Bacterial small signal recognition particle RNA: a 97-nucleotide RNA sequence from Swaminathania salitolerans. Pairs were carried over by alignment from the consensus structure, which is taken from published work. On this family, see Rosenblad et al., Nucleic Acids Res 2003: "SRPDB: Signal Recognition Particle Database". From the family's description: The signal recognition particle (SRP) is a universally conserved ribonucleoprotein involved in the co-translational targeting of proteins to membranes. It is annotated as a non-coding RNA gene.

RNA sequence: GGAGGUCGGCCUUGGACGGGCGCCUUGCGAACCCGGUCAGGUCCGGAAGGAAGCAGCCGCAGUGAGUUUUGUUCGGGUCAUGUGUUCGGCCUCCCAC
Numbered sequence: 001g002g003a004g005g006u007c008g009g010c011c012u013u014g015g016a017c018g019g020g021c022g023c024c025u026u027g028c029g030a031a032c033c034c035g036g037u038c039a040g041g042u043c044c045g046g047a048a049g050g051a052a053g054c055a056g057c058c059g060c061a062g063u064g065a066g067u068u069u070u071g072u073u074c075g076g077g078u079c080a081u082g083u084g085u086u087c088g089g090c091c092u093c094c095c096a097c
Stems, first nucleotide, its partner, number of pairs: 004091005011082001013080002017075006024066005034059004042051003